[Rfam]
RNA: PreQ1 (pre queuosine) riboswitch aptamer
Organism: Frischella perrara
RNA sequence: UAUUCUGUGGUUCGAAAUCCUCCCACAUAAAAAAACUAAGGAAGU
Numbered sequence: 001u002a003u004u005c006u007g008u009g010g011u012u013c014g015a016a017a018u019c020c021u022c023c024c025a026c027a028u029a030a031a032a033a034a035a036c037u038a039a040g041g042a043a044g045u
Stems, first nucleotide, its partner, number of pairs: 006027005016037001